[Rfam]
RNA sequence: UUCCACGUCAUUGGGGAGUAGCCUGUUCUGGAGUUAUAUUUAAUCCAGAAAGUCCGUAUCAACAUGCUCGUUUGAUUUUAAACGUGGUGCGGACACCAUCAUUUGGUUGGCAAGACCAUAGACACAUGAAUAAGCCUUUUGGUUGGGGGU
Numbered sequence: 001u002u003c004c005a006c007g008u009c010a011u012u013g014g015g016g017a018g019u020a021g022c023c024u025g026u027u028c029u030g031g032a033g034u035u036a037u038a039u040u041u042a043a044u045c046c047a048g049a050a051a052g053u054c055c056g057u058a059u060c061a062a063c064a065u066g067c068u069c070g071u072u073u074g075a076u077u078u079u080a081a082a083c084g085u086g087g088u089g090c091g092g093a094c095a096c097c098a099u100c101a102u103u104u105g106g107u108u109g110g111c112a113a114g115a116c117c118a119u120a121g122a123c124a125c126a127u128g129a130a131u132a133a134g135c136c137u138u139u140u141g142g143u144u145g146g147g148g149g150u
Base pairs, nucleotide, nucleotide: 026050027049028048029047030046031045052094053093054092055091056090057089058088059087060086061085069084070083071082072081073080
This 150-nucleotide sequence from Providencia heimbachae belongs to the Rfam family "Manganese Mn2+ riboswitch aptamer (yybP-ykoY)". Rfam describes the family as follows. This RNA was originally discovered in E. coli during a large scale screen and was named SraF. The family was later found to exist upstream of related families of protein genes in many bacteria, including the the yybP and ykoK genes in B. subtilis. The specific functions of these proteins are unknown, but this structured RNA element may be involved in their genetic regulation as a riboswitch. Lineage of the source: Bacteria > Pseudomonadota > Morganellaceae > Providencia > Providencia heimbachae.